[Rfam]
RNA sequence: GUCCCUGUAGCUCAGCAGGAUAGAGCGACUGCCUCCUAAGCAGUAGGUCGAAGGUUCGAAUCCUUUCAGGGACG
Number, nucleotide and partner (000 for none) at each position: 001g073002u072003c071004c070005c069006u068007g067008u000009a000010g026011c025012u024013c023014a000015g000016c000017a000018g000019g000020a000021u000022a000023g013024a012025g011026c010027g000028a044029c043030u042031g041032c040033c000034u000035c000036c000037u000038a000039a000040g032041c031042a030043g029044u028045a000046g000047g000048u000049c000050g066051a065052a064053g063054g062055u000056u000057c000058g000059a000060a000061u000062c054063c053064u052065u051066u050067c007068a006069g005070g004071g003072a002073c001074g000
tRNA: a 74-nucleotide sequence from Tetragenococcus halophilus. The base pairs follow the family's consensus structure, which is taken from published work. The organism belongs to Tetragenococcus halophilus, within Bacteria. Transfer RNA (tRNA) molecules are approximately 80 nucleotides in length. Their secondary structure includes four short double-helical elements and three loops (D, anti-codon, and T loops). The match comes from Rfam's covariance-model search (71 bits).